A member of the RNA family "Ribosomal protein L10 leader" from Candidatus Izimoplasma sp. ZiA1, 129 nucleotides long. The match comes from Rfam's covariance-model search (50 bits). Rfam's curators write: This family is a putative r-protein leader autoregulatory structure found in B. subtilis and other low-GC Gram-positive bacteria.
RNA sequence: AUAAUAAAAAUACUUUGAUCUAAGACUUAGGUGCUUUAUGCUUAAUAACCUAACGAGACAAUAAGAGAUAUUUAUGAAUGUAAUAUUCCUCUUUUGUCAUAGACAUCGGAGGAAUUUUUAUUUGAUAAA
Numbered sequence: 001a002u003a004a005u006a007a008a009a010a011u012a013c014u015u016u017g018a019u020c021u022a023a024g025a026c027u028u029a030g031g032u033g034c035u036u037u038a039u040g041c042u043u044a045a046u047a048a049c050c051u052a053a054c055g056a057g058a059c060a061a062u063a064a065g066a067g068a069u070a071u072u073u074a075u076g077a078a079u080g081u082a083a084u085a086u087u088c089c090u091c092u093u094u095u096g097u098c099a100u101a102g103a104c105a106u107c108g109g110a111g112g113a114a115u116u117u118u119u120a121u122u123u124g125a126u127a128a129a
Stems, first nucleotide, its partner, number of pairs: 028052005033041002086114007095105003